[Rfam]
Notes:
FMN riboswitch aptamer (RFN element): a 151-nucleotide sequence from Gordonia sp. NB41Y. Rfam links the family to the GO term FMN binding.
RNA sequence: GUACGUUCUCGGGGCCGGGGUGAAAAUCCCCACCGGCGGUGAGUCCCACGCAAGUGAGACCGAGCCCGCGAGCGCUCAUCGAGAGGUGAGGACAGCAGAUCCGGUGUGAAUCCGGAGCCGACGGUCAUAGUCCGGAUGCGAGAGAACAAGG
Numbered sequence: 001g002u003a004c005g006u007u008c009u010c011g012g013g014g015c016c017g018g019g020g021u022g023a024a025a026a027u028c029c030c031c032a033c034c035g036g037c038g039g040u041g042a043g044u045c046c047c048a049c050g051c052a053a054g055u056g057a058g059a060c061c062g063a064g065c066c067c068g069c070g071a072g073c074g075c076u077c078a079u080c081g082a083g084a085g086g087u088g089a090g091g092a093c094a095g096c097a098g099a100u101c102c103g104g105u106g107u108g109a110a111u112c113c114g115g116a117g118c119c120g121a122c123g124g125u126c127a128u129a130g131u132c133c134g135g136a137u138g139c140g141a142g143a144g145a146a147c148a149a150g151g
Stems, first nucleotide, its partner, number of pairs: 005147006018030003032131002034120002036069004064118002072096002100116005122134003
Pairs were carried over by alignment from the consensus structure, which is taken from published work. The match comes from Rfam's covariance-model search (104 bits). Lineage of the source: Bacteria > Actinomycetota > Mycobacteriales > Gordoniaceae > Gordonia.